[Rfam]
RNA sequence: UAGAGAAAAUCAUCACGUACUUAUAUAGGUUCAUAAUCGGUUGAACGUCUCUACCAGCCGCCGGAAACGGCUGACUAUAAGUAUGCGGGCGGCAGAG
Numbered sequence: 001u002a003g004a005g006a007a008a009a010u011c012a013u014c015a016c017g018u019a020c021u022u023a024u025a026u027a028g029g030u031u032c033a034u035a036a037u038c039g040g041u042u043g044a045a046c047g048u049c050u051c052u053a054c055c056a057g058c059c060g061c062c063g064g065a066a067a068c069g070g071c072u073g074a075c076u077a078u079a080a081g082u083a084u085g086c087g088g089g090c091g092g093c094a095g096a097g
Base pairs, nucleotide, nucleotide: 018083019082020081021080022079023078024077025076029046030045031044032043033042055073056072057071058070059069060068
The family of this 97-nucleotide sequence from Lachnoclostridium sp. An76 is "Purine riboswitch aptamer". Rfam links the family to the GO term purine nucleobase biosynthetic process. The family's consensus secondary structure is taken from published work. The match comes from Rfam's covariance-model search (54 bits). Taxonomically the source falls in Lachnoclostridium (Bacteria, Bacillati, Clostridia, Lachnospirales).